[Rfam]
RNA: Plastid psbT antisense RNA
Organism: Asparagus officinalis
RNA sequence: GUAGUCAGAUCUCUAAGUUUUUGGAAUGCUCCAAAUUC
Numbered sequence: 001g002u003a004g005u006c007a008g009a010u011c012u013c014u015a016a017g018u019u020u021u022u023g024g025a026a027u028g029c030u031c032c033a034a035a036u037u038c
Stems, first nucleotide, its partner, number of pairs: 003018001005016001007014002020035006